[Rfam]
RNA: 7SK RNA
RNA sequence: GGAUGUGAGGGCGAUCUGGCUGUGACAUCUGUCACCCCAUUGAUCGCCAGGGUUGAUUUGGCUGAUCUGGCUGGCUAGGCGGGUGUCCCUUUCCUCCCUCCCCACUCCACGUGCAUCUCUCCAGAAGCUGCGCUCUGGGUGGAAGAAGAUGACCAUCCCCGAUAGGGGAGGACCGUUCUUCUCCGUCAAGGGUUUAUGAGUAGCUGUGCUCCCCUGCCAGAACCUCGAAACAAGCUCUCAGGGUCCAUUUGUAGGAGAACAUAGGGUAGUCAAGCUUCCAAGACUCCAGACACAUCCAAAUGAGGCACUGCAUGUGGCAGGUUGCCUUUCUUU
Dot-bracket structure: (((.(.(((((.((...((....((((((((((.(((((..(((((((...........))).)))))))..))...)))))))))).)).))..))))).)...))).......((((((((((.((...))))))..(.(.....((......))..).)..)))).))...............................(((...((.(((((.......(((...(((((.............)))))..)))....))))).))...)))......................(((.(((((.((((.....))))...)))))..)))